[Rfam]
RNA sequence: GGAACCGGUUGGACGGUCGCUAUAUCGCCAUGCGGUAUGGAGGAAAGUCCGGGCUCCAUAGGACAGGGUGCCAGGUAACGCCUGGGGGGCGCGAGUCUACGGCCAGUGCCACAGAAAACAAACCGCCUACGUUCUCGUUGCGAGAACCGGCAAGGGUGAAAAGGUGCGGUAAGAGCGCACCGCGUCUCUGGCAACAGCGACGGCACGGUAAACCCCACCCGGAGCAAGACCAAAUAGAGGAGCACAACGUGUGGUCCGCACGGCUCCUGGGUAGGUCGCUACAGGCGUCUGGUGACAGGCGUCGCAGAUGAAUGAUCGUCCUCGACAGAACCCGGCUUAUAGACCGGUUCCCGCU
Dot-bracket structure: ((((((((((((((((((.(((((((((...)))))))))....[[[.[[[[[((((...[[[[.((((((((((.....)))))(((((....)))).)((...(((((............(((((...((((((.....)))))).)))..)).......((((((.......))))))(((((.(((....))).)))).)..)))..)))))))))))))...((((......((((((....(((((.]]]]))))))))))).....))))......((((((((....))))))))..........)))))))..........]]]]]]]].).))))))))))....
The record is a 355-nucleotide sequence from Candidatus Contendibacter odensensis, which matches "Bacterial RNase P class A" in Rfam.
From the family's description: Ribonuclease P (RNase P) is a ubiquitous endoribonuclease, found in archaea, bacteria and eukarya as well as chloroplasts and mitochondria.
Rfam classes the family as a ribozyme.
NCBI's taxonomy places the organism under Bacteria, Pseudomonadota, Gammaproteobacteria, Candidatus Contendibacter, Candidatus Contendibacter odensensis.
The match comes from Rfam's covariance-model search (335 bits).